[Rfam]
The family of this 134-nucleotide sequence from Myripristis murdjan is "Small nucleolar RNA SNORD94". A reference for the family is Vitali et al. (2003), "Identification of 13 novel human modification guide RNAs", Nucleic Acids Res.
RNA sequence: CUGGCGAUGAUGAGAGGCGCAGGGGUACGGACCUCAGCCGGUGAUGGGGGCUGAGUGCCGCUGCAGGUCUGACGGAGGACAUGUGGUCCUCUGGCAGAGAGCAGCGGCACGAAACAGACGCCUGUCUGAGCCGC
Numbered sequence: 001c002u003g004g005c006g007a008u009g010a011u012g013a014g015a016g017g018c019g020c021a022g023g024g025g026u027a028c029g030g031a032c033c034u035c036a037g038c039c040g041g042u043g044a045u046g047g048g049g050g051c052u053g054a055g056u057g058c059c060g061c062u063g064c065a066g067g068u069c070u071g072a073c074g075g076a077g078g079a080c081a082u083g084u085g086g087u088c089c090u091c092u093g094g095c096a097g098a099g100a101g102c103a104g105c106g107g108c109a110c111g112a113a114a115c116a117g118a119c120g121c122c123u124g125u126c127u128g129a130g131c132c133g134c
Base pairs, nucleotide, nucleotide: 002133003132004131005130

Rfam classes the family as a C/D-box small nucleolar RNA. The base pairs follow the family's consensus structure, which was predicted with RNAalifold. The source organism's lineage runs through Eukaryota, Vertebrata, Acanthomorphata, Holocentridae and Myripristis.